[Rfam]
RNA sequence: UUAAAAGUUUGGCCGAAGCUUUGUUAGGACAAAGCACGGGGGAACCGUUACUUGGGGUGAAGCCAAUCUAUUGGCCGGGUGAUUACUCUUUGACCCGAAUCCGUCAGCUAACCUCGCAGGCCAUAAAAAAGGGAGGA
Numbered sequence: 001u002u003a004a005a006a007g008u009u010u011g012g013c014c015g016a017a018g019c020u021u022u023g024u025u026a027g028g029a030c031a032a033a034g035c036a037c038g039g040g041g042g043a044a045c046c047g048u049u050a051c052u053u054g055g056g057g058u059g060a061a062g063c064c065a066a067u068c069u070a071u072u073g074g075c076c077g078g079g080u081g082a083u084u085a086c087u088c089u090u091u092g093a094c095c096c097g098a099a100u101c102c103g104u105c106a107g108c109u110a111a112c113c114u115c116g117c118a119g120g121c122c123a124u125a126a127a128a129a130a131g132g133g134a135g136g137a
Stems, first nucleotide, its partner, number of pairs: 011122004018035007037116005046054002055102003063074004077096004